[Rfam]
RNA sequence: ACUGUUUUAUAUUCAGAUUGUUUGCAAAGCAAACACUGAUUUCCUUGGUCAAAGUAAAGAAUUGCUGUGUGUAGUCUUUGCCCAUCCCAUGUGAUGGGCUUUUUUUUGC
Numbered sequence: 001a002c003u004g005u006u007u008u009a010u011a012u013u014c015a016g017a018u019u020g021u022u023u024g025c026a027a028a029g030c031a032a033a034c035a036c037u038g039a040u041u042u043c044c045u046u047g048g049u050c051a052a053a054g055u056a057a058a059g060a061a062u063u064g065c066u067g068u069g070u071g072u073a074g075u076c077u078u079u080g081c082c083c084a085u086c087c088c089a090u091g092u093g094a095u096g097g098g099c100u101u102u103u104u105u106u107u108g109c
Stems, first nucleotide, its partner, number of pairs: 001019001003017001034047002038044001063071003080099007